[Rfam]
RNA: Purine riboswitch aptamer
RNA sequence: ACACAAAAUUCAUUAAACUCUUGUAUAAGCUCAUUAAUUGGAGUGAGCGUCUCGACCAGGCGACCGUAAAUUGCCCCAGGCUACAAGAGGCUGCACGUGAUGA
Numbered sequence: 001a002c003a004c005a006a007a008a009u010u011c012a013u014u015a016a017a018c019u020c021u022u023g024u025a026u027a028a029g030c031u032c033a034u035u036a037a038u039u040g041g042a043g044u045g046a047g048c049g050u051c052u053c054g055a056c057c058a059g060g061c062g063a064c065c066g067u068a069a070a071u072u073g074c075c076c077c078a079g080g081c082u083a084c085a086a087g088a089g090g091c092u093g094c095a096c097g098u099g100a101u102g103a
Stems, first nucleotide, its partner, number of pairs: 018089008029048007057079001059075005